[Rfam]
RNA sequence: GCUGAACACGGAGAAAAGCAGGGGCGCGCGAGCGCCUCUCGCCCAAGGUGCAAGCCGCGCGUUCCGGCGUGGUGAAACUCUCAGGCCAAUGACUCCGGGGAGACC
Number, nucleotide and partner (000 for none) at each position: 001g000002c000003u000004g000005a000006a000007c099008a000009c097010g096011g095012a094013g093014a000015a000016a000017a000018g000019c000020a039021g038022g037023g036024g000025c000026g000027c000028g000029c000030g000031a000032g000033c000034g000035c000036c023037u022038c021039u020040c000041g086042c085043c084044c000045a081046a000047g000048g080049u000050g078051c000052a000053a000054g073055c072056c071057g070058c069059g068060c000061g000062u000063u000064c000065c000066g000067g000068c059069g058070u057071g056072g055073u054074g000075a000076a000077a000078c050079u000080c048081u045082c000083a000084g043085g042086c041087c000088a000089a000090u000091g000092a000093c013094u012095c011096c010097g009098g000099g007100g000101a000102g000103a000104c000105c000
Record summary
Shown here is a 105-nucleotide RNA sequence from Saccharopolyspora erythraea, a member of the family "Glycine riboswitch aptamer". It scores 38 bits against the family's covariance model.